[Rfam]
RNA sequence: GUCAGAAACAUAAUUGGGUGCAGCGCUGAUGAAAUUGUCCUAUAUCUCAUGGCCUAGAUUAGUAGAUAUAAGAUUGCAAAGAAUUACCAAAAAAAGCAGGAAACUGAACUUCAUCAACGCUGCACUCAAUGACGUUUCUC
Dot-bracket structure: .....((((.(.(((((((((((((.((.(((..............................................................................))).)).))))))))))))).).))))...